[Rfam]
RNA sequence: UUCACAAUCUACUACAAGCCUUUCAAAUCUUUUCAAGACUUUUCAGUCAAACCAACUACCACUCACAAUGUCUCCCUGCGCCUGCAACUGCUGCUCCGGCAACUGCAACUCUUGCUCUUGCAGCUCGUGCAAGGUAUGCCUUCUC
Number, nucleotide and partner (000 for none) at each position: 001u000002u000003c000004a000005c000006a000007a000008u000009c000010u000011a000012c000013u000014a000015c000016a000017a000018g000019c000020c000021u000022u000023u000024c000025a000026a000027a000028u000029c000030u000031u000032u000033u000034c000035a000036a000037g000038a000039c000040u000041u000042u000043u000044c000045a000046g000047u000048c000049a000050a000051a000052c000053c000054a000055a000056c000057u000058a000059c000060c000061a000062c000063u000064c000065a000066c000067a000068a000069u000070g000071u000072c000073u000074c000075c000076c000077u101078g100079c099080g000081c000082c000083u000084g094085c093086a092087a000088c000089u000090g000091c000092u086093g085094c084095u000096c000097c000098g000099g079100c078101a077102a000103c000104u000105g130106c129107a128108a000109c000110u000111c000112u000113u000114g121115c120116u000117c000118u000119u000120g115121c114122a000123g000124c000125u000126c000127g000128u107129g106130c105131a000132a000133g000134g000135u000136a000137u000138g000139c000140c000141u000142u000143c000144u000145c000
A. fumigatus sRNA Afu_254: a 145-nucleotide RNA sequence from Aspergillus chevalieri.
Pairs were carried over by alignment from the consensus structure, which was predicted with WAR.
The family's RNA type in Rfam is small RNA.
NCBI's taxonomy places the organism under Eukaryota, saccharomyceta, Pezizomycotina, Eurotiales, Aspergillus subgen. Aspergillus.
A reference for the family is Jochl et al. (2008), "Small ncRNA transcriptome analysis from Aspergillus fumigatus suggests a novel mechanism for regulation of protein synthesis", Nucleic Acids Res.